[Rfam]
RNA: MIR398 microRNA precursor family
RNA sequence: ACCCGAUCCAGAGGAGUGCCACUGAGAACACAAGUGCGCAGGUGCAAAUGCAAUUGUGUUCUCAGGUCACCCCUUUGGGUUGCUU
Numbered sequence: 001a002c003c004c005g006a007u008c009c010a011g012a013g014g015a016g017u018g019c020c021a022c023u024g025a026g027a028a029c030a031c032a033a034g035u036g037c038g039c040a041g042g043u044g045c046a047a048a049u050g051c052a053a054u055u056g057u058g059u060u061c062u063c064a065g066g067u068c069a070c071c072c073c074u075u076u077g078g079g080u081u082g083c084u085u
Stems, first nucleotide, its partner, number of pairs: 007079002011075004016070003024063010